[Rfam]
RNA: DUF805 RNA
RNA sequence: AUUUUGUGGAGUCCAGUUACCACGAUAAAAACGGGGCGUUAUCAGAAAAGCCUAAUGAGUAUGAAAACU
Numbered sequence: 001a002u003u004u005u006g007u008g009g010a011g012u013c014c015a016g017u018u019a020c021c022a023c024g025a026u027a028a029a030a031a032c033g034g035g036g037c038g039u040u041a042u043c044a045g046a047a048a049a050g051c052c053u054a055a056u057g058a059g060u061a062u063g064a065a066a067a068c069u
Base pairs, nucleotide, nucleotide: 006023007022008021009020035052036051037050042063